[Rfam]
RNA sequence: CUCAUCUGUCUGUUGGGCUGGGGGCAGGGCCUUUGUGAAGGCGGGUUAUGCUCAGAUUACCUCUGGGCCCUUCCUUGAGUUCCGAGGCAGAUUUA
Numbered sequence: 001c002u003c004a005u006c007u008g009u010c011u012g013u014u015g016g017g018c019u020g021g022g023g024g025c026a027g028g029g030c031c032u033u034u035g036u037g038a039a040g041g042c043g044g045g046u047u048a049u050g051c052u053c054a055g056a057u058u059a060c061c062u063c064u065g066g067g068c069c070c071u072u073c074c075u076u077g078a079g080u081u082c083c084g085a086g087g088c089a090g091a092u093u094u095a
Stems, first nucleotide, its partner, number of pairs: 004092008015082005021076004026071007039062003043058002
Rfam assigns this 95-nucleotide RNA sequence from Peromyscus maniculatus to the family "mir-326 microRNA precursor family". A search with the family's covariance model found it, with a score of 90 bits. On this family, see Chiang et al., Genes Dev 2010: "Mammalian microRNAs: experimental evaluation of novel and previously annotated genes". Lineage of the source: Eukaryota > Euteleostomi > Dipnotetrapodomorpha > Neotominae > Peromyscus maniculatus. Rfam 15.1 lists 129 matches to the family in 129 species.